[Rfam]
RNA sequence: AAGAAACACUAGGGGAAUCCUUUUUUAGGACUGAGAGAAGAGUAUAACUCUGAUACCCUUAUUACCUGAACAGGUUCGUACCUGCGGAGGAAAGUGACAAGUCUAUUUU
Numbered sequence: 001a002a003g004a005a006a007c008a009c010u011a012g013g014g015g016a017a018u019c020c021u022u023u024u025u026u027a028g029g030a031c032u033g034a035g036a037g038a039a040g041a042g043u044a045u046a047a048c049u050c051u052g053a054u055a056c057c058c059u060u061a062u063u064a065c066c067u068g069a070a071c072a073g074g075u076u077c078g079u080a081c082c083u084g085c086g087g088a089g090g091a092a093a094g095u096g097a098c099a100a101g102u103c104u105a106u107u108u109u
Stems, first nucleotide, its partner, number of pairs: 007096004011059004018030004039051004065090003071084004
Rfam assigns this 109-nucleotide RNA sequence from Lederbergia lenta to the family "TPP riboswitch aptamer (THI element)". The organism belongs to Lederbergia, within Bacteria. Gene Ontology term of the family: thiamine pyrophosphate binding. The base pairs follow the family's consensus structure, which is taken from published work.